The family of this 134-nucleotide sequence from Pediococcus stilesii is "M-box riboswitch aptamer (ykoK leader)". About the family: M-box riboswitch, also know as ykoK leader is described as a metaloregulatory RNA that sense divalent metals and function as a genetic control element of genes related to divalent metal transport in bacteria. It was first reported upstream of the B.subtilis ykoK gene and genes with related functions in other bacteria. A reference for the family is Ramesh and Winkler (2010), "Magnesium-sensing riboswitches in bacteria", RNA Biol.
RNA sequence: GAGGCUCCUACACGGACAAAGGCUACUGUACAGAAACGUUGUGAAACGCCAAUGUAUAGGACAGAAAAUGUCGAUUUGAAGGCAUUUUCCCAAGUAGCUAAACUGGCAGCAGUUUUACGCCGUGUAGUGCUGAA
Numbered sequence: 001g002a003g004g005c006u007c008c009u010a011c012a013c014g015g016a017c018a019a020a021g022g023c024u025a026c027u028g029u030a031c032a033g034a035a036a037c038g039u040u041g042u043g044a045a046a047c048g049c050c051a052a053u054g055u056a057u058a059g060g061a062c063a064g065a066a067a068a069u070g071u072c073g074a075u076u077u078g079a080a081g082g083c084a085u086u087u088u089c090c091c092a093a094g095u096a097g098c099u100a101a102a103c104u105g106g107c108a109g110c111a112g113u114u115u116u117a118c119g120c121c122g123u124g125u126a127g128u129g130c131u132g133a134a
Stems, first nucleotide, its partner, number of pairs: 003131003008127008022098005028057005037048004064089004070083003100115003